[Rfam]
RNA: Pseudomonas sRNA P36
RNA sequence: UAAUUUGUUACCGCCGGCGCAUCGUUCGUAACAAAAACCGGGAGCAUCGGUAACGACGCCCCG
Dot-bracket structure: ....(((((((.(.............))))))))....((((....(((....)))...))))